A member of the RNA family "DUF805b RNA" from Myotis brandtii, 36 nucleotides long.

RNA sequence: CGGGAGAGAGUCGAAAAUCCCUUAAAAGAGUAGGUA
Numbered sequence: 001c002g003g004g005a006g007a008g009a010g011u012c013g014a015a016a017a018u019c020c021c022u023u024a025a026a027a028g029a030g031u032a033g034g035u036a
Base pairs, nucleotide, nucleotide: 002021003020004019005018010035011034012033
A search with the family's covariance model found it, with a score of 36 bits.